[Rfam]
RNA sequence: UUAUCUCAUCUAGCGCCAUGCACCUGUUGGAUACAGGUUGACGAGGAAAAGGGUUAUCGAAAAUUCGGCGGACGCCCUUUCGUACCGCUUCCAGUGCGAGAUGUACCGGCAAAUAUGCAGGUGACUGCAAAACAAAUACGGUAUAAGGAAGCUU
Dot-bracket structure: .....................((((((.....)))))).........(((((....((((....)))).......)))))(((((........)))))....((((((.......(((((....))))).........))))))..........
Numbered sequence: 001u002u003a004u005c006u007c008a009u010c011u012a013g014c015g016c017c018a019u020g021c022a023c024c025u026g027u028u029g030g031a032u033a034c035a036g037g038u039u040g041a042c043g044a045g046g047a048a049a050a051g052g053g054u055u056a057u058c059g060a061a062a063a064u065u066c067g068g069c070g071g072a073c074g075c076c077c078u079u080u081c082g083u084a085c086c087g088c089u090u091c092c093a094g095u096g097c098g099a100g101a102u103g104u105a106c107c108g109g110c111a112a113a114u115a116u117g118c119a120g121g122u123g124a125c126u127g128c129a130a131a132a133c134a135a136a137u138a139c140g141g142u143a144u145a146a147g148g149a150a151g152c153u154u
Stems, first nucleotide, its partner, number of pairs: 022038006048080005057068004081098005103144006116129005
Shown here is a 154-nucleotide RNA sequence from Roseburia sp. CAG:100, a member of the family "glmS glucosamine-6-phosphate activated ribozyme aptamer". By type it is a riboswitch. The organism belongs to Roseburia, within Bacteria.